[Rfam]
RNA: Bacillaceae-1 RNA
RNA sequence: AUCAGCGGAAGUUCGACUGCAAGCGGUCGCGUCCAUGCGACAACGUCGAACGACCUCAUCCUGAGGG
Numbered sequence: 001a002u003c004a005g006c007g008g009a010a011g012u013u014c015g016a017c018u019g020c021a022a023g024c025g026g027u028c029g030c031g032u033c034c035a036u037g038c039g040a041c042a043a044c045g046u047c048g049a050a051c052g053a054c055c056u057c058a059u060c061c062u063g064a065g066g067g
Stems, first nucleotide, its partner, number of pairs: 011051007026041005054066004